Description: Rfam assigns this 71-nucleotide RNA sequence to the family "Fluoride riboswitch aptamer (crcB RNA motif)". For this family Rfam cites "Widespread genetic switches and toxicity resistance proteins for fluoride" (Baker et al., Science, 2012). Rfam 15.1 lists 2,293 matches to the family in 1,982 species.

[Rfam]
RNA sequence: ACGAAAAUGCGGAAUGACACCUCCGCGGGCCAUGCCCAAACCGCCGAAAGGCUGAUGGCGUCUACUCUUGC
Numbered sequence: 001a002c003g004a005a006a007a008u009g010c011g012g013a014a015u016g017a018c019a020c021c022u023c024c025g026c027g028g029g030c031c032a033u034g035c036c037c038a039a040a041c042c043g044c045c046g047a048a049a050g051g052c053u054g055a056u057g058g059c060g061u062c063u064a065c066u067c068u069u070g071c
Base pairs, nucleotide, nucleotide: 010025011024012023013022016062017061018060020058021057043052044051045050